Description:
A member of the RNA family "Iron response element I" from Vombatus ursinus, 35 nucleotides long. It scores 49 bits against the family's covariance model. The family's consensus secondary structure is taken from published work. Its family is annotated with response to iron ion in the Gene Ontology. The family's RNA type in Rfam is cis-regulatory element. The family has 62 seed sequences and 6,829 matches in Rfam 15.1.
[Rfam]
RNA sequence: CAGUUUCCUGCUUCAACAGUGCUUGAACGGAACUC
Number, nucleotide and partner (000 for none) at each position: 001c000002a034003g033004u032005u031006u000007c030008c029009u000010g028011c000012u027013u026014c025015a024016a023017c021018a000019g000020u000021g017022c000023u016024u015025g014026a013027a012028c010029g008030g007031a005032a004033c003034u002035c000